A member of the RNA family "mir-726 microRNA precursor family" from Lates calcarifer, 87 nucleotides long. The source organism's lineage runs through Eukaryota, Osteoglossocephalai, Neoteleostei, Percomorphaceae and Lates. The family has 2 seed sequences and 131 matches in Rfam 15.1.
RNA sequence: UCGAGGGUAGGUCUGGAAUUCCGCUAGUUCUGAAUUAUUUGUGUUUAGUAAAAGUUCACUACUAGCAGAACUCAGAUUUGCUCCCAA
Numbered sequence: 001u002c003g004a005g006g007g008u009a010g011g012u013c014u015g016g017a018a019u020u021c022c023g024c025u026a027g028u029u030c031u032g033a034a035u036u037a038u039u040u041g042u043g044u045u046u047a048g049u050a051a052a053a054g055u056u057c058a059c060u061a062c063u064a065g066c067a068g069a070a071c072u073c074a075g076a077u078u079u080g081c082u083c084c085c086a087a
Stems, first nucleotide, its partner, number of pairs: 003085001005083007013075004019070003023066006031058006038052002